[Rfam]
Shown here is a 132-nucleotide RNA from Loxodonta africana, a member of the family "Small nucleolar RNA SNORA71". A search with the family's covariance model found it, with a score of 107 bits. Rfam's curators write: The members of this family belong to the H/ACA class of snoRNAs which bind a number of proteins (including dyskerin, Gar1p and Nop10p) to form snoRNP complexes. This class of snoRNAs are thought to guide the sites of modification of uridines to pseudouridines by forming direct base pairing interactions with substrate RNAs. This family includes U71 (SNORA71), ACA39 (SNORA39) and ACA60 (SNORA60). U71 and ACA60 are predicted to guide the pseudouridylation of U406 and U1004 in 18S rRNA respectively. There is currently no target RNA identified for ACA39. A reference for the family is Ganot et al. (1997), "The family of box ACA small nucleolar RNAs is defined by an evolutionarily conserved secondary structure and ubiquitous sequence elements essential for RNA accumulation", Genes Dev.
RNA sequence: CUCUGCAUACGAAAGUGACCCUGGGCUGCCCAUGUCCUGGUCAUUGAUAGUGCAGGGAGACCAAUUGCUAAAGCAUUUGCUCGUGUUUGGAGGUCCACUCCUGUCCCUUCCAGACCCUGGAGCUUUCUCACG
Dot-bracket structure: ((((((((.....(((((((..((((.......)))).)))))))....)))))))).........(..(((((..........(((((((((...........).))).)))))......)))))..)...